[Rfam]
RNA sequence: UGCAUUCAGGGAACAUUCAACGCUGUCGUUGAGUUUGGGAGUGUAUAAGAAACCAUCGACCGUUGAUUGUACCUUGGGGAUUA
Numbered sequence: 001u002g003c004a005u006u007c008a009g010g011g012a013a014c015a016u017u018c019a020a021c022g023c024u025g026u027c028g029u030u031g032a033g034u035u036u037g038g039g040a041g042u043g044u045a046u047a048a049g050a051a052a053c054c055a056u057c058g059a060c061c062g063u064u065g066a067u068u069g070u071a072c073c074u075u076g077g078g079g080a081u082u083a
Stems, first nucleotide, its partner, number of pairs: 001083002005078004014069002017066006025060004030055002033053004
The family of this 83-nucleotide RNA from Electrophorus electricus is "mir-181 microRNA precursor family". NCBI's taxonomy places the organism under Eukaryota, Metazoa, Craniata, Teleostomi, Electrophorus. The base pairs follow the family's consensus structure, which was predicted with PFOLD.